RNA sequence: AUUUUAUACCGAAGGGUGGAGAGCACAGGCUCCGCGAAACCCUGGCAACCACUCCUCCAAUGGCCCGGAGGAAAAGGUGCCAACGCCUGCCCGCGCUAUUGCGGGGAACUAUAAAAA
Numbered sequence: 001a002u003u004u005u006a007u008a009c010c011g012a013a014g015g016g017u018g019g020a021g022a023g024c025a026c027a028g029g030c031u032c033c034g035c036g037a038a039a040c041c042c043u044g045g046c047a048a049c050c051a052c053u054c055c056u057c058c059a060a061u062g063g064c065c066c067g068g069a070g071g072a073a074a075a076g077g078u079g080c081c082a083a084c085g086c087c088u089g090c091c092c093g094c095g096c097u098a099u100u101g102c103g104g105g106g107a108a109c110u111a112u113a114a115a116a117a
Base pairs, nucleotide, nucleotide: 002116003115004114005113006112007111008110013043014042015041016040017039021032022031023030026089027088028087029086044081045080046079047078049077050076053072054071055070056069057068058067085109090106091105092104
A member of the RNA family "SAM riboswitch aptamer (S box leader)" from Neolewinella agarilytica, 117 nucleotides long.
Rfam describes the family as follows. The SAM riboswitch is found upstream of a number of genes which code for proteins involved in methionine or cysteine biosynthesis in Gram-positive bacteria. The SAM riboswitch acts at the level of transcription termination control. The predicted structure consists of a complex stem-loop region followed by a single stem loop terminator region.
The literature on the family includes a 2003 paper in Proc Natl Acad Sci U S A by Epshtein et al., "The riboswitch-mediated control of sulfur metabolism in bacteria".